[Rfam]
The family of this 139-nucleotide sequence from Cohnella sp. AR92 is "c-di-AMP riboswitch aptamer (ydaO/yuaA leader)". A search with the family's covariance model found it, with a score of 86 bits. This family represents a conserved RNA structure found upstream of the ydaO and yuaA genes in Bacillus subtilis and related genes in other bacteria.

RNA sequence: ACGAUCUUGUAGCUUAGUUUCCGGUGAAACCGGAAAGCGGGGGAACCAAUCUUCUGGGGCGAAUCGGUCUGCAAGGACCGUAGGGGACCAUCUAACCCGAGUCCGUCAGCUAACCUCGUCAGCUUUGGAUGGGUCAAUU
Numbered sequence: 001a002c003g004a005u006c007u008u009g010u011a012g013c014u015u016a017g018u019u020u021c022c023g024g025u026g027a028a029a030c031c032g033g034a035a036a037g038c039g040g041g042g043g044a045a046c047c048a049a050u051c052u053u054c055u056g057g058g059g060c061g062a063a064u065c066g067g068u069c070u071g072c073a074a075g076g077a078c079c080g081u082a083g084g085g086g087a088c089c090a091u092c093u094a095a096c097c098c099g100a101g102u103c104c105g106u107c108a109g110c111u112a113a114c115c116u117c118g119u120c121a122g123c124u125u126u127g128g129a130u131g132g133g134u135c136a137a138u139u
Base pairs, nucleotide, nucleotide: 011124012123013122014121018036019035020034021033022032023031024030025029037119038118039117040116041115042114047056048055057104058103059102065080066079067078068077083098084097085096